[Rfam]
RNA: Caenorhabditis snoRNA ceN84
RNA sequence: GCGCCACAAUGUCUGGGCAAGGUGCCUUGCACCCGCUUGAGCAACCUAAUCCAUUGAUGGCUAUAGAAAAUUUAUCGAGUAAUCCCUGUUGAGUUAUUAGAGCCCUUCAGUUUCAUGUCGAUGAUACAAUC
Numbered sequence: 001g002c003g004c005c006a007c008a009a010u011g012u013c014u015g016g017g018c019a020a021g022g023u024g025c026c027u028u029g030c031a032c033c034c035g036c037u038u039g040a041g042c043a044a045c046c047u048a049a050u051c052c053a054u055u056g057a058u059g060g061c062u063a064u065a066g067a068a069a070a071u072u073u074a075u076c077g078a079g080u081a082a083u084c085c086c087u088g089u090u091g092a093g094u095u096a097u098u099a100g101a102g103c104c105c106u107u108c109a110g111u112u113u114c115a116u117g118u119c120g121a122u123g124a125u126a127c128a129a130u131c
Stems, first nucleotide, its partner, number of pairs: 003061003007056004015052003020047003023043003026039001029036002075123001079119001086110003091105001093103003